[Rfam]
RNA sequence: ACCUCCAAGCCUCUCUACGAUGCUCAAAUCGGGGGUC
Numbered sequence: 001a002c003c004u005c006c007a008a009g010c011c012u013c014u015c016u017a018c019g020a021u022g023c024u025c026a027a028a029u030c031g032g033g034g035g036u037c
Base pairs, nucleotide, nucleotide: 001036002035003034004033005032006031008024009023010022
Rfam assigns this 37-nucleotide RNA sequence to the family "abiF RNA".
Rfam describes the family as follows. Actinobacteria, Bacteroidetes, Clostridia, Proteobacteria, one Clostridia phage.